This 72-nucleotide RNA from Flavobacterium sp. AG291 belongs to the Rfam family "Fluoride riboswitch aptamer (crcB RNA motif)". Its family is annotated with response to fluoride and positive regulation of gene expression in the Gene Ontology. Pairs were carried over by alignment from the consensus structure, which is taken from published work. NCBI's taxonomy places the organism under Bacteria, Pseudomonadati, Flavobacteriia, Flavobacteriaceae, Flavobacterium.
RNA sequence: AGCAUAUAUGGCAAUGAUGUCUGCCUUGAACUGCUUACAAAUCAAUUUGAAGCUGAUGACGUCUGUUAAUGG
Numbered sequence: 001a002g003c004a005u006a007u008a009u010g011g012c013a014a015u016g017a018u019g020u021c022u023g024c025c026u027u028g029a030a031c032u033g034c035u036u037a038c039a040a041a042u043c044a045a046u047u048u049g050a051a052g053c054u055g056a057u058g059a060c061g062u063c064u065g066u067u068a069a070u071g072g
Stems, first nucleotide, its partner, number of pairs: 010025004016063006033053004